[Rfam]
RNA sequence: UCAGUACAAAGGCACACUUAUCGAAAGGUAAGCUCGCAAAGUCUCAGACCUAAAGCGUUCAUUGCGCUACGGUGGCUGGAUUGCCUGA
Numbered sequence: 001u002c003a004g005u006a007c008a009a010a011g012g013c014a015c016a017c018u019u020a021u022c023g024a025a026a027g028g029u030a031a032g033c034u035c036g037c038a039a040a041g042u043c044u045c046a047g048a049c050c051u052a053a054a055g056c057g058u059u060c061a062u063u064g065c066g067c068u069a070c071g072g073u074g075g076c077u078g079g080a081u082u083g084c085c086u087g088a
Stems, first nucleotide, its partner, number of pairs: 012037002017032006040082004045078003048073003055067004
The record is an 88-nucleotide RNA from Pontibacillus halophilus, which matches "c-di-GMP-I riboswitch aptamer" in Rfam.
From the family's description: GEMM was predicted in a large-scale screen for bacterial structured RNA regulatory elements.
The organism belongs to Pontibacillus halophilus, within Bacteria.
A search with the family's covariance model found it, with a score of 69 bits.